A member of the RNA family "DUF3800-II RNA", 69 nucleotides long. It is one of the family's seed sequences.
Nucleotides: 069
Base pairs, nucleotide, nucleotide: 007065008064009063010062013059014058015057016056017055024034025033026032027031036053037052039050040049041048042047
Number, partner (000 for none) and nucleotide at each position: 001000u002000u003000a004000a005000c006000a007065a008064g009063a010062a011000u012000g013059u014058u015057u016056g017055g018000g019000a020000c021000a022000a023000a024034u025033c026032c027031c028000a029000g030000u031027g032026g033025g034024a035000a036053a037052g038000c039050c040049c041048g042047c043000c044000u045000c046000g047042g048041c049040g050039g051000a052037c053036u054000a055017c056016u057015a058014g059013a060000c061000a062010u063009u064008c065007u066000g067000a068000c069000c